MIR807 microRNA precursor family: a 176-nucleotide RNA.
Pairs were carried over by alignment from the consensus structure, which was predicted with WAR.
A reference for the family is Luo et al. (2006), "Rice embryogenic calli express a unique set of microRNAs, suggesting regulatory roles of microRNAs in plant post-embryogenic development", FEBS Lett.
RNA sequence: AACCACACUAUCAAUAAAUGGAUUCACUCAUGAGAUGACGUGGUUGUUUCACUUAGGACGAGGACAUGACAUCCUAUUACCAGCCAUCGCACGAAAUUAAUAGGAUGUAACAUCCUCAUCUUAGAUGGAACAACCACGUCAUCUCACGGGUGAAUCUAUUCAUCAAUAGAGUGGUU
Numbered sequence: 001a002a003c004c005a006c007a008c009u010a011u012c013a014a015u016a017a018a019u020g021g022a023u024u025c026a027c028u029c030a031u032g033a034g035a036u037g038a039c040g041u042g043g044u045u046g047u048u049u050c051a052c053u054u055a056g057g058a059c060g061a062g063g064a065c066a067u068g069a070c071a072u073c074c075u076a077u078u079a080c081c082a083g084c085c086a087u088c089g090c091a092c093g094a095a096a097u098u099a100a101u102a103g104g105a106u107g108u109a110a111c112a113u114c115c116u117c118a119u120c121u122u123a124g125a126u127g128g129a130a131c132a133a134c135c136a137c138g139u140c141a142u143c144u145c146a147c148g149g150g151u152g153a154a155u156c157u158a159u160u161c162a163u164c165a166a167u168a169g170a171g172u173g174g175u176u
Stems, first nucleotide, its partner, number of pairs: 001176006009168003014163002017160003021156008031146003035142005041136008051126001054123002057120002063114002069108011086097002